RNA sequence: UAGGAGAGUCAGGGUUCAGCACCCCUCCCCGAGCCCAGGAUAACUCUUAAAGUGGAGGGGCA
Numbered sequence: 001u002a003g004g005a006g007a008g009u010c011a012g013g014g015u016u017c018a019g020c021a022c023c024c025c026u027c028c029c030c031g032a033g034c035c036c037a038g039g040a041u042a043a044c045u046c047u048u049a050a051a052g053u054g055g056a057g058g059g060g061c062a
Base pairs, nucleotide, nucleotide: 008041009040010039012036013035014034015033016031019028022060023059024058025057026056027055
Dot-bracket structure: .......[[[.[[[[[..[..((((((]..].]]]]..]]].............))))))..
The family of this 62-nucleotide RNA sequence from Canis lupus is "Gag/pol translational readthrough site".
A search with the family's covariance model found it, with a score of 71 bits.
It is annotated as a cis-regulatory element.
The base pairs follow the family's consensus structure, which is taken from published work.